[Rfam]
RNA sequence: CUCACUUUGUGUAUAUAACACACACGUGUCGGCACAUUCGCCGGGGUGCUCCAACGGUUUUUACCUGCGGGGUCGGCGCAAUGGGACACGUGGAGGCAUAAC
Numbered sequence: 001c002u003c004a005c006u007u008u009g010u011g012u013a014u015a016u017a018a019c020a021c022a023c024a025c026g027u028g029u030c031g032g033c034a035c036a037u038u039c040g041c042c043g044g045g046g047u048g049c050u051c052c053a054a055c056g057g058u059u060u061u062u063a064c065c066u067g068c069g070g071g072g073u074c075g076g077c078g079c080a081a082u083g084g085g086a087c088a089c090g091u092g093g094a095g096g097c098a099u100a101a102c
Base pairs, nucleotide, nucleotide: 023092024091025090026089027088028087029086030085035083036082037081038080040077041076042075043074048073049072050071051070052069
Rfam assigns this 102-nucleotide RNA sequence from Brenneria goodwinii to the family "t44 RNA". A search with the family's covariance model found it, with a score of 83 bits. For this family Rfam cites "Transcriptome analysis of Escherichia coli using high-density oligonucleotide probe arrays" (Tjaden et al., Nucleic Acids Res, 2002). NCBI's taxonomy places the organism under Bacteria, Gammaproteobacteria, Enterobacterales, Pectobacteriaceae, Brenneria.